[Rfam]
The record is a 63-nucleotide RNA from Microcebus murinus, which matches "Ma3 gene ribosomal frameshift signal" in Rfam. The base pairs follow the family's consensus structure, which is taken from published work. The literature on the family includes a 2006 paper in J Biol Chem by Wills et al., "A functional -1 ribosomal frameshift signal in the human paraneoplastic Ma3 gene".
RNA sequence: GGGAGAUGAGGACGGGGCUGGGGACACGAGCCACCCCGAGUCCUCCUCGGGCCAACUGGCUCA
Numbered sequence: 001g002g003g004a005g006a007u008g009a010g011g012a013c014g015g016g017g018c019u020g021g022g023g024a025c026a027c028g029a030g031c032c033a034c035c036c037c038g039a040g041u042c043c044u045c046c047u048c049g050g051g052c053c054a055a056c057u058g059g060c061u062c063a
Stems, first nucleotide, its partner, number of pairs: 014044006021037003028062005

The match comes from Rfam's covariance-model search (44 bits).